[Rfam]
RNA: Potassium channel RNA editing signal
Organism: Cotesia congregata
RNA sequence: GUUACAGCUACGGCGACAUGGUGCCUCAAGAACCGUUGGGAAAAAUAGUGGGUGGAGUGUGCUCGUUGAGCGGAGUGCUUGUCAUAGCUUUGCCAGUGCCUGUAAUCGUCAGUAAC
Numbered sequence: 001g002u003u004a005c006a007g008c009u010a011c012g013g014c015g016a017c018a019u020g021g022u023g024c025c026u027c028a029a030g031a032a033c034c035g036u037u038g039g040g041a042a043a044a045a046u047a048g049u050g051g052g053u054g055g056a057g058u059g060u061g062c063u064c065g066u067u068g069a070g071c072g073g074a075g076u077g078c079u080u081g082u083c084a085u086a087g088c089u090u091u092g093c094c095a096g097u098g099c100c101u102g103u104a105a106u107c108g109u110c111a112g113u114a115a116c
Stems, first nucleotide, its partner, number of pairs: 001116002004113002010109004016103003020099001023097002039079002042076001052064001